[Rfam]
RNA sequence: AUUCCUUCUGUCUUGUAUCCUUGAUUGAUGAAGCCUCGGAUGCUUCA
Numbered sequence: 001a002u003u004c005c006u007u008c009u010g011u012c013u014u015g016u017a018u019c020c021u022u023g024a025u026u027g028a029u030g031a032a033g034c035c036u037c038g039g040a041u042g043c044u045u046c047a
Base pairs, nucleotide, nucleotide: 010025011024012023032044033043034042

The family of this 47-nucleotide sequence from Zingiber officinale is "Plastid-ycf3 group II-D1 intron". Rfam's curators write: Plastid rpl16 is a non-coding RNA (ncRNA) recognised in plastids. It was recognised in and intronic region of a ribosome rpl16 gene. Rfam links the family to the GO term Group II intron splicing. Pairs were carried over by alignment from the consensus structure, which was predicted with LocARNA.